[Rfam]
Small nucleolar RNA SNORA69: a 132-nucleotide sequence from Notothenia coriiceps. U69 is a member of the H/ACA class of small nucleolar RNAs (snoRNAs) which act as guides in the the modification of uridines to pseudouridines. The family has 16 seed sequences and 808 matches in Rfam 15.1. The organism belongs to Notothenia, within Eukaryota. Rfam links the family to the GO terms nucleolus and RNA processing.
RNA sequence: AAAGCAGGUCUGCAAUUGCAGCACUCCAUUUCAUUAGAGUGUUGUCAUUAAUCCUGCUGAGAGUAUCUCUGCUGCAGAGCCCUGAUUCCAGCUCACCAUGGUGGUGAUGAGGAAGCUCUGUAGCUGAACAUU
Numbered sequence: 001a002a003a004g005c006a007g008g009u010c011u012g013c014a015a016u017u018g019c020a021g022c023a024c025u026c027c028a029u030u031u032c033a034u035u036a037g038a039g040u041g042u043u044g045u046c047a048u049u050a051a052u053c054c055u056g057c058u059g060a061g062a063g064u065a066u067c068u069c070u071g072c073u074g075c076a077g078a079g080c081c082c083u084g085a086u087u088c089c090a091g092c093u094c095a096c097c098a099u100g101g102u103g104g105u106g107a108u109g110a111g112g113a114a115g116c117u118c119u120g121u122a123g124c125u126g127a128a129c130a131u132u
Base pairs, nucleotide, nucleotide: 003058004057005056006055007054008053019044020043021042022041023040024039025038026037069126071124072123073122074121075120076119077118078117079116087110088109096103